[Rfam]
RNA sequence: ACUAGUUUAAGAGAGCUUCCUUCAAUCCACUCAUGAAUAAGUGAAGGGUUCAAAUUAUCAAUUGACUCAUUCAUUCAAUUGCAGUAGAAAGAAUAUGUCUUUUUACUACUGUAAAUGUGUGAACAGUGCGGGAGAUAAAUUUUGUCCUAUUCUUCUCUGUGCUUGGACUUAAGAGAGCUCCCUUUCACCAAUUA
Numbered sequence: 001a002c003u004a005g006u007u008u009a010a011g012a013g014a015g016c017u018u019c020c021u022u023c024a025a026u027c028c029a030c031u032c033a034u035g036a037a038u039a040a041g042u043g044a045a046g047g048g049u050u051c052a053a054a055u056u057a058u059c060a061a062u063u064g065a066c067u068c069a070u071u072c073a074u075u076c077a078a079u080u081g082c083a084g085u086a087g088a089a090a091g092a093a094u095a096u097g098u099c100u101u102u103u104u105a106c107u108a109c110u111g112u113a114a115a116u117g118u119g120u121g122a123a124c125a126g127u128g129c130g131g132g133a134g135a136u137a138a139a140u141u142u143u144g145u146c147c148u149a150u151u152c153u154u155c156u157c158u159g160u161g162c163u164u165g166g167a168c169u170u171a172a173g174a175g176a177g178c179u180c181c182c183u184u185u186c187a188c189c190a191a192u193u194a
Stems, first nucleotide, its partner, number of pairs: 013180006020173001024169001026167004059134001062131003070123002076117001
Notes
The family of this 194-nucleotide RNA from Olea europaea is "MIR159 microRNA precursor family". The family has 66 seed sequences and 3,649 matches in Rfam 15.1. Rfam links the family to the GO terms miRNA-mediated post-transcriptional gene silencing and RISC complex. It scores 92 bits against the family's covariance model.